[Rfam]
RNA: mir-9195 microRNA precursor family
RNA sequence: AGAGGUCCUCCGCGGCCAGGGGGGAACGCUUGCCUCAUCACCAUGGUGAUGAAGCAAGCAUUCUGCCAGGCCGCUCAUGCUGCCUGC
Numbered sequence: 001a002g003a004g005g006u007c008c009u010c011c012g013c014g015g016c017c018a019g020g021g022g023g024g025a026a027c028g029c030u031u032g033c034c035u036c037a038u039c040a041c042c043a044u045g046g047u048g049a050u051g052a053a054g055c056a057a058g059c060a061u062u063c064u065g066c067c068a069g070g071c072c073g074c075u076c077a078u079g080c081u082g083c084c085u086g087c
Base pairs, nucleotide, nucleotide: 004084005083006082012074013073014072015071016070017069020067021066023064024063025062026061028059029058030057031056032055033054037050038049039048040047041046